[Rfam]
RNA sequence: CCACUCUGAAAAGUGAAUUGAGCGAAGCGAUACGCCGUCAGUUCCGCCCAAGGUGAAAGUCAUGCCCCGCCGGCAUGGUGAAGCUCUCAGGCUUUAAGACGACAGAGGGGGA
Numbered sequence: 001c002c003a004c005u006c007u008g009a010a011a012a013g014u015g016a017a018u019u020g021a022g023c024g025a026a027g028c029g030a031u032a033c034g035c036c037g038u039c040a041g042u043u044c045c046g047c048c049c050a051a052g053g054u055g056a057a058a059g060u061c062a063u064g065c066c067c068c069g070c071c072g073g074c075a076u077g078g079u080g081a082a083g084c085u086c087u088c089a090g091g092c093u094u095u096a097a098g099a100c101g102a103c104a105g106a107g108g109g110g111g112a
Stems, first nucleotide, its partner, number of pairs: 001110002004107005015044007046092003050087001053086001055084001059079007
Dot-bracket structure: ((.(((((......(((((((................))))))).(((.(..(.(...(((((((.......)))))))....).))..)))..........))))).))..
Rfam assigns this 112-nucleotide RNA sequence from Cryobacterium roopkundense to the family "Glycine riboswitch aptamer". The match comes from Rfam's covariance-model search (34 bits).